RNA sequence: GUCGAGAGCAUCGCGUCCGGGCCCACGCUUAUCGGUACGAGGUUCACCUCGUGCAACUGUUCGGGCGCAGGGCGCGAGAUCCGGCGUGCGGCCCCUGCUGAAUUCCGGUGGUGCUACACCGAGGCGUUAUCGGGCGCGCACGCCGGGCUCUCGGCGCCUA
Numbered sequence: 001g002u003c004g005a006g007a008g009c010a011u012c013g014c015g016u017c018c019g020g021g022c023c024c025a026c027g028c029u030u031a032u033c034g035g036u037a038c039g040a041g042g043u044u045c046a047c048c049u050c051g052u053g054c055a056a057c058u059g060u061u062c063g064g065g066c067g068c069a070g071g072g073c074g075c076g077a078g079a080u081c082c083g084g085c086g087u088g089c090g091g092c093c094c095c096u097g098c099u100g101a102a103u104u105c106c107g108g109u110g111g112u113g114c115u116a117c118a119c120c121g122a123g124g125c126g127u128u129a130u131c132g133g134g135c136g137c138g139c140a141c142g143c144c145g146g147g148c149u150c151u152c153g154g155c156g157c158c159u160a
Stems, first nucleotide, its partner, number of pairs: 001155008009078001011077004015068002018065001021062001024059002039050004081146010091135004107120004
Xanthomonadaceae sRNA sX15: a 160-nucleotide RNA from Xanthomonas sp. XNM01. The family's consensus secondary structure was predicted with CMfinder. The family's RNA type in Rfam is small RNA. Taxonomically the source falls in Xanthomonas (Bacteria, Pseudomonadati, Pseudomonadota, Gammaproteobacteria). The literature on the family includes a 2011 paper in Nucleic Acids Res by Schmidtke et al., "Genome-wide transcriptome analysis of the plant pathogen Xanthomonas identifies sRNAs with putative virulence functions". The family has 14 seed sequences and 32 matches in Rfam 15.1.